[Rfam]
RNA sequence: CGAUCCUGUUAUGUUUUAUGGUAAUAGUAAAACCGCUAACAGUUUUUUACACACCUCAGUAACCGCAACACUUUCAAAUUGCCGGAAGUUCCUAAAGCCCAAGGUACCGCGAAGGGGGUGAAAAUCGCUCUGCAGCAGGUGGGUUAACAGCCUACUGGAUGGUAAAAAACCAAGGGAUUUAAGGUAAUUGAUCGAAAGAACUAAUAAGACUGGAUGGAUAUAGUAAUAUGUAUCUGUAAGACAAAUGUCAUCCUAUGUUUUGAGUGAUAUACUUAUGCCAAUGCGUAGAUGAAAUUUCGCUUUAGAGUUGCAUCUAUUGGGAUUUACUAACUACACUCUUUAAGUAGGGAAACAUGGUCCGUUAAAAUACGGAAUGGAUAAUCGGCAGCCAAGCGCUUCGAGCUCACUGCUAGUAAUAAUAACUCAUGCGUGCAGUUCAUAGACUAAACGUUAGUGAGUGGGAGUAAUAAGAUAACUUCCUUGGAUGGAAAGCUCUGGAAUUAUUACUGCUGCUUAAGAUAUAGUCAACAGACACCCGAAAGGGUAGU
Numbered sequence: 001c002g003a004u005c006c007u008g009u010u011a012u013g014u015u016u017u018a019u020g021g022u023a024a025u026a027g028u029a030a031a032a033c034c035g036c037u038a039a040c041a042g043u044u045u046u047u048u049a050c051a052c053a054c055c056u057c058a059g060u061a062a063c064c065g066c067a068a069c070a071c072u073u074u075c076a077a078a079u080u081g082c083c084g085g086a087a088g089u090u091c092c093u094a095a096a097g098c099c100c101a102a103g104g105u106a107c108c109g110c111g112a113a114g115g116g117g118g119u120g121a122a123a124a125u126c127g128c129u130c131u132g133c134a135g136c137a138g139g140u141g142g143g144u145u146a147a148c149a150g151c152c153u154a155c156u157g158g159a160u161g162g163u164a165a166a167a168a169a170c171c172a173a174g175g176g177a178u179u180u181a182a183g184g185u186a187a188u189u190g191a192u193c194g195a196a197a198g199a200a201c202u203a204a205u206a207a208g209a210c211u212g213g214a215u216g217g218a219u220a221u222a223g224u225a226a227u228a229u230g231u232a233u234c235u236g237u238a239a240g241a242c243a244a245a246u247g248u249c250a251u252c253c254u255a256u257g258u259u260u261u262g263a264g265u266g267a268u269a270u271a272c273u274u275a276u277g278c279c280a281a282u283g284c285g286u287a288g289a290u291g292a293a294a295u296u297u298c299g300c301u302u303u304a305g306a307g308u309u310g311c312a313u314c315u316a317u318u319g320g321g322a323u324u325u326a327c328u329a330a331c332u333a334c335a336c337u338c339u340u341u342a343a344g345u346a347g348g349g350a351a352a353c354a355u356g357g358u359c360c361g362u363u364a365a366a367a368u369a370c371g372g373a374a375u376g377g378a379u380a381a382u383c384g385g386c387a388g389c390c391a392a393g394c395g396c397u398u399c400g401a402g403c404u405c406a407c408u409g410c411u412a413g414u415a416a417u418a419a420u421a422a423c424u425c426a427u428g429c430g431u432g433c434a435g436u437u438c439a440u441a442g443a444c445u446a447a448a449c450g451u452u453a454g455u456g457a458g459u460g461g462g463a464g465u466a467a468u469a470a471g472a473u474a475a476c477u478u479c480c481u482u483g484g485a486u487g488g489a490a491a492g493c494u495c496u497g498g499a500a501u502u503a504u505u506a507c508u509g510c511u512g513c514u515u516a517a518g519a520u521a522u523a524g525u526c527a528a529c530a531g532a533c534a535c536c537c538g539a540a541a542g543g544g545u546a547g548u
Base pairs, nucleotide, nucleotide: 014026016024017023018022069456070455071454072453075450080387081386082385083384084383085382090378091377092376388436389435393431394430395429396428401424402423404421440527442526443525444524445523446522458513459512460511461510463508464507465506466505534545535544536543537542
RNA: Group I catalytic intron
Organism: Diversispora epigaea